[Rfam]
RNA: Eukaryotic small subunit ribosomal RNA, nucleotides 22 to 621
RNA sequence: AGCAUAUGCUUGUCUCAAAGAUUAAGGCAGGCAUGUCUAAGUACACAUGACUGGUACAGUGAAACCACGACUGGCUGAUUAAAUCAGUUAUGGUUCCUUUUGGUCACUUCAACCGCUACUGGGAUAACUGUGGUAAUUCUAGAACUAAUACGUCCCGACGAGCGAUGACCUCCGGGGAUGCGUGAAUUUAUCAGACCAAAACUAACCCGGGCUCGCCCGGCCCCUUUGAUGUCUCUAGAUAACCUCAGGCCGAUCGCGUUUCCUCGUGGCGAUGACAAUGCAUUUAAAUGUUUGGCCUAUCAACUUUUGAUGGUACUUUCUGUGCUUACCAUGGUGACCACGGGUCAUGGGGAAUUAGGGUUUGAUUCCAGAGAGGGAGGGUGAGAAAUGGCUACCACAUCCAAGGAAGGCAACAGGCGCGCAAAUUACCCACUCCCGACCCGGGGAGGUAGUGACGAGAAAUAACCAUACAGAAGUCUGUGGAGGCCCUGUAAUUGGAAUGAGUACACUUUAAAGCCUUUAACGAGGAUCCACUGGAGGGCGAGUCUGAUGCCGGCAGAUGCGGUAUGUUCAGCUCCAAUAGCGUAUAUUAAGUUGCUG
Numbered sequence: 001a002g003c004a005u006a007u008g009c010u011u012g013u014c015u016c017a018a019a020g021a022u023u024a025a026g027g028c029a030g031g032c033a034u035g036u037c038u039a040a041g042u043a044c045a046c047a048u049g050a051c052u053g054g055u056a057c058a059g060u061g062a063a064a065c066c067a068c069g070a071c072u073g074g075c076u077g078a079u080u081a082a083a084u085c086a087g088u089u090a091u092g093g094u095u096c097c098u099u100u101u102g103g104u105c106a107c108u109u110c111a112a113c114c115g116c117u118a119c120u121g122g123g124a125u126a127a128c129u130g131u132g133g134u135a136a137u138u139c140u141a142g143a144a145c146u147a148a149u150a151c152g153u154c155c156c157g158a159c160g161a162g163c164g165a166u167g168a169c170c171u172c173c174g175g176g177g178a179u180g181c182g183u184g185a186a187u188u189u190a191u192c193a194g195a196c197c198a199a200a201a202c203u204a205a206c207c208c209g210g211g212c213u214c215g216c217c218c219g220g221c222c223c224c225u226u227u228g229a230u231g232u233c234u235c236u237a238g239a240u241a242a243c244c245u246c247a248g249g250c251c252g253a254u255c256g257c258g259u260u261u262c263c264u265c266g267u268g269g270c271g272a273u274g275a276c277a278a279u280g281c282a283u284u285u286a287a288a289u290g291u292u293u294g295g296c297c298u299a300u301c302a303a304c305u306u307u308u309g310a311u312g313g314u315a316c317u318u319u320c321u322g323u324g325c326u327u328a329c330c331a332u333g334g335u336g337a338c339c340a341c342g343g344g345u346c347a348u349g350g351g352g353a354a355u356u357a358g359g360g361u362u363u364g365a366u367u368c369c370a371g372a373g374a375g376g377g378a379g380g381g382u383g384a385g386a387a388a389u390g391g392c393u394a395c396c397a398c399a400u401c402c403a404a405g406g407a408a409g410g411c412a413a414c415a416g417g418c419g420c421g422c423a424a425a426u427u428a429c430c431c432a433c434u435c436c437c438g439a440c441c442c443g444g445g446g447a448g449g450u451a452g453u454g455a456c457g458a459g460a461a462a463u464a465a466c467c468a469u470a471c472a473g474a475a476g477u478c479u480g481u482g483g484a485g486g487c488c489c490u491g492u493a494a495u496u497g498g499a500a501u502g503a504g505u506a507c508a509c510u511u512u513a514a515a516g517c518c519u520u521u522a523a524c525g526a527g528g529a530u531c532c533a534c535u536g537g538a539g540g541g542c543g544a545g546u547c548u549g550a551u552g553c554c555g556g557c558a559g560a561u562g563c564g565g566u567a568u569g570u571u572c573a574g575c576u577c578c579a580a581u582a583g584c585g586u587a588u589a590u591u592a593a594g595u596u597g598c599u600g
Stems, first nucleotide, its partner, number of pairs: 001591002004588007013460004019453001020420001026418001028416001031414001035068002041065002047060002075373002084295004090289002094287002100282001103279001122151001129143001131141003162183003169176002188242005201230001203228002209218003254275003259271001261269002296344003303335003310332006348370004352363004375396002378393002398409001400407002426451001428450003434446005466497001468495001469493005476487004504524002506521001508520001535579005547574004556563002